[Rfam]
RNA: skipping-rope RNA
RNA sequence: GGCUAAUGAUGUAGAAAAGGUUCUUUGCGCGCUUACUUUGUAAGUUAUCAGAGAUGUGGGGUACGCCGACCCACCAUUGGCU
Numbered sequence: 001g002g003c004u005a006a007u008g009a010u011g012u013a014g015a016a017a018a019g020g021u022u023c024u025u026u027g028c029g030c031g032c033u034u035a036c037u038u039u040g041u042a043a044g045u046u047a048u049c050a051g052a053g054a055u056g057u058g059g060g061g062u063a064c065g066c067c068g069a070c071c072c073a074c075c076a077u078u079g080g081c082u
Base pairs, nucleotide, nucleotide: 001082002081003080004079005078006077007076008075011028012027013026014025015024019067020066021065030051031045032044033043034042035041036040056074057073058072059071060070
Dot-bracket structure: ((((((((..(((((...[[[..))))).(((((((...)))))).....)....(((((....]]]..)))))))))))))